[Rfam]
Nucleotides: 178
Stems, first nucleotide, its partner, number of pairs: 006173006016082007024074001031065002034062004086116012117143004123138005145163007
Number, partner (000 for none) and nucleotide at each position: 001000c002000u003000c004000u005000g006173c007172a008171g009170a010169a011168g012000a013000g014000g015000a016082g017081c018080a019079c020078u021077a022076c023000c024074c025000a026000g027000g028000u029000a030000u031065c032064u033000a034062u035061g036060u037059u038000g039000u040000g041000g042000a043000a044000c045000c046000g047000c048000a049000a050000u051000u052000c053000c054000u055000a056000c057000a058000c059037a060036g061035c062034a063000c064032a065031g066000u067000a068000g069000a070000g071000g072000g073000g074024g075000a076022g077021u078020a079019g080018u081017g082016c083000c084000g085000a086116g087115g088114u089113u090112a091111u092110a093109u094108c095107a096106a097105g098000u099000u100000g101000c102000u103000g104000g105097c106096u107095u108094g109093a110092u111091a112090u113089g114088g115087u116086c117143g118142g119141u120140u121000g122000c123138u124137a125136g126135g127134g128000c129000u130000g131000a132000a133000u134127c135126c136125c137124u138123a139000c140120a141119a142118c143117u144000g145163u146162c147161a148160u149159c150158a151157g152000a153000c154000g155000a156000u157151c158150u159149g160148a161147u162146g163145a164000u165000g166000a167000g168011c169010u170009u171008c172007u173006g174000a175000g176000g177000u178000c